[Rfam]
RNA sequence: CAUACUGUCCGGUAGGUAAGGCUACCACAAGGAUACGGGUCGCUGCCGCGGAGUGAUGGAGACAUCAUGAGAGGGUUUGAACAGGCGAUAUCGAACAGGAAGGUAUCAUCUAACGCGAUUUCAUCGCCUUGUGAGGCUAAAGCUUGAACGGUUGGGGAAGACUG
Number, nucleotide and partner (000 for none) at each position: 001c000002a000003u000004a000005c160006u159007g000008u157009c156010c155011g149012g000013u101014a000015g144016g143017u142018a000019a000020g138021g137022c136023u000024a000025c000026c133027a132028c131029a130030a129031g128032g127033a000034u000035a000036c000037g000038g000039g119040u118041c117042g116043c115044u000045g077046c074047c073048g000049c071050g000051g000052a000053g000054u000055g066056a065057u064058g063059g000060a000061g000062a000063c058064a057065u056066c055067a000068u000069g000070a000071g049072a000073g047074g046075g000076u000077u045078u000079g000080a000081a000082c000083a000084g110085g109086c000087g107088a000089u000090a104091u103092c102093g000094a000095a000096c000097a000098g000099g000100a000101a013102g092103g091104u090105a000106u000107c087108a000109u085110c084111u000112a000113a000114c000115g043116c042117g041118a040119u039120u000121u000122c000123a000124u000125c000126g000127c032128c031129u030130u029131g028132u027133g026134a000135g000136g022137c021138u020139a000140a000141a000142g017143c016144u015145u000146g000147a000148a000149c011150g000151g000152u000153u000154g000155g010156g009157g008158a000159a006160g005161a000162c000163u000164g000
RNA: M-box riboswitch aptamer (ykoK leader)
Organism: Oscillibacter sp. 1-3